[Rfam]
RNA sequence: CUAGAAACUGAUUGUCCAAACGCAAUUCUUGUGCAAUUUUGAAGUAAAACCCAAGAAUUGUGGCUGGACAUCUGUUGCUGG
Number, nucleotide and partner (000 for none) at each position: 001c000002u080003a079004g078005a000006a076007a075008c000009u000010g072011a071012u070013u000014g069015u068016c067017c066018a065019a000020a000021c062022g061023c060024a059025a058026u057027u056028c055029u054030u053031g052032u000033g000034c000035a000036a000037u000038u000039u000040u000041g000042a000043a000044g000045u000046a000047a000048a000049a000050c000051c000052c031053a030054a029055g028056a027057a026058u025059u024060g023061u022062g021063g000064c000065u018066g017067g016068a015069c014070a012071u011072c010073u000074g000075u007076u006077g000078c004079u003080g002081g000
Rfam assigns this 81-nucleotide sequence from Lepisosteus oculatus to the family "mir-219 microRNA precursor family". The family has 92 seed sequences and 1,318 matches in Rfam 15.1. The family's consensus secondary structure was predicted with RNAalifold. A reference for the family is Lai et al. (2003), "Computational identification of Drosophila microRNA genes", Genome Biol.